[Rfam]
This 347-nucleotide RNA sequence from Clostridium aciditolerans belongs to the Rfam family "Bacterial RNase P class A". The family's RNA type in Rfam is ribozyme. It scores 299 bits against the family's covariance model. A reference for the family is Frank and Pace (1998), "Ribonuclease P: unity and diversity in a tRNA processing ribozyme", Annu Rev Biochem. The family's consensus secondary structure is taken from published work.
RNA sequence: CGAGUAAGCCAGACAAUCGCUGCUGUGGUAACACAGGAGAGGAAAGUCCGAGCUCCAUAGGACAGGGUGCUGGGUAAUACCCAGUCAGGGUGACUUGAAGGAAAGUGCAACAGAGAUAUACCGCCGAAACUUUGUUUCGGUAAGGGUGGAAAGGCGAGGUAAGAGCUCACCAGCGCAUUGGCGACUUUGCGGCUAUGUAAACCCCAUCUGGAGCAAGAUCGAAUAGAGAAGCAUUAAAGGGGUGGUCCGCUCCGCUUCCGGGUAGUAUCGCUUGAGCCUAUUGGUAACAAUGGGCCUAGAUAGAUGAUUGUCUAAUACAGAACUCGGCUUAUAGGUUUGGUCGCAUA
Numbered sequence: 001c002g003a004g005u006a007a008g009c010c011a012g013a014c015a016a017u018c019g020c021u022g023c024u025g026u027g028g029u030a031a032c033a034c035a036g037g038a039g040a041g042g043a044a045a046g047u048c049c050g051a052g053c054u055c056c057a058u059a060g061g062a063c064a065g066g067g068u069g070c071u072g073g074g075u076a077a078u079a080c081c082c083a084g085u086c087a088g089g090g091u092g093a094c095u096u097g098a099a100g101g102a103a104a105g106u107g108c109a110a111c112a113g114a115g116a117u118a119u120a121c122c123g124c125c126g127a128a129a130c131u132u133u134g135u136u137u138c139g140g141u142a143a144g145g146g147u148g149g150a151a152a153g154g155c156g157a158g159g160u161a162a163g164a165g166c167u168c169a170c171c172a173g174c175g176c177a178u179u180g181g182c183g184a185c186u187u188u189g190c191g192g193c194u195a196u197g198u199a200a201a202c203c204c205c206a207u208c209u210g211g212a213g214c215a216a217g218a219u220c221g222a223a224u225a226g227a228g229a230a231g232c233a234u235u236a237a238a239g240g241g242g243u244g245g246u247c248c249g250c251u252c253c254g255c256u257u258c259c260g261g262g263u264a265g266u267a268u269c270g271c272u273u274g275a276g277c278c279u280a281u282u283g284g285u286a287a288c289a290a291u292g293g294g295c296c297u298a299g300a301u302a303g304a305u306g307a308u309u310g311u312c313u314a315a316u317a318c319a320g321a322a323c324u325c326g327g328c329u330u331a332u333a334g335g336u337u338u339g340g341u342c343g344c345a346u347a
Base pairs, nucleotide, nucleotide: 001343002342003341005339006338007337008336009335010334011332012312013311014310015309016308017307018306020039021038023036024035025034026033027032044330045329046328048327049326050325051324052323053213054212055211056210060248061247062246063245065209066208067207068206069205070084071083072082073081074080085099086097087096088095089094100204101203105202106201107198108197109196121145122144123141124140125139126138127137128136129135130134153171154170156168157167158166173193174191175190176189177188180185217269218268219267220265228258229257230256231255232254239253240252241251242250243249276295277294278293279292280291281290282289283288